RNA sequence: UCGCGUGCUCUGGGGUCGGUGAAAAUCCGAACCGGCGGUGACAGUCCGCGACCCGAUCGCAGCCAGUGAUCGGUUGACCAGGUGGAACUCCUGGACCGACGGUCAAAGUCCGGAUGGGAAGUGCACGCAC
Numbered sequence: 001u002c003g004c005g006u007g008c009u010c011u012g013g014g015g016u017c018g019g020u021g022a023a024a025a026u027c028c029g030a031a032c033c034g035g036c037g038g039u040g041a042c043a044g045u046c047c048g049c050g051a052c053c054c055g056a057u058c059g060c061a062g063c064c065a066g067u068g069a070u071c072g073g074u075u076g077a078c079c080a081g082g083u084g085g086a087a088c089u090c091c092u093g094g095a096c097c098g099a100c101g102g103u104c105a106a107a108g109u110c111c112g113g114a115u116g117g118g119a120a121g122u123g124c125a126c127g128c129a130c
Stems, first nucleotide, its partner, number of pairs: 003128006010121001017029003031109002033098002035049004044096002053073002078094005100112003

The family of this 130-nucleotide RNA from Nocardioides kongjuensis is "FMN riboswitch aptamer (RFN element)". Taxonomically the source falls in Nocardioides (Bacteria, Actinomycetes, Propionibacteriales, Nocardioidaceae). It scores 97 bits against the family's covariance model.